The record is a 107-nucleotide sequence from Formivibrio citricus, which matches "Glycine riboswitch aptamer" in Rfam.
Taxonomically the source falls in Formivibrio (Bacteria, Pseudomonadota, Neisseriales, Chitinibacteraceae).
It scores 49 bits against the family's covariance model.
The pairing is the family consensus, mapped onto this sequence.
Its family is annotated with glycine biosynthetic process in the Gene Ontology.
[Rfam]
RNA sequence: CAUAACCGAUCUGGAGAGAGGCGGCUUUCAGAGCCGCCCACCGAAGGGGCACCCAGCCGGCCAUGCCGCGCUGAAAACUCUCAGGUAGAAGGGACAGAGGGACGGUU
Numbered sequence: 001c002a003u004a005a006c007c008g009a010u011c012u013g014g015a016g017a018g019a020g021g022c023g024g025c026u027u028u029c030a031g032a033g034c035c036g037c038c039c040a041c042c043g044a045a046g047g048g049g050c051a052c053c054c055a056g057c058c059g060g061c062c063a064u065g066c067c068g069c070g071c072u073g074a075a076a077a078c079u080c081u082c083a084g085g086u087a088g089a090a091g092g093g094a095c096a097g098a099g100g101g102a103c104g105g106u107u
Stems, first nucleotide, its partner, number of pairs: 007101001010098004020038004040086003043082002047080003053073001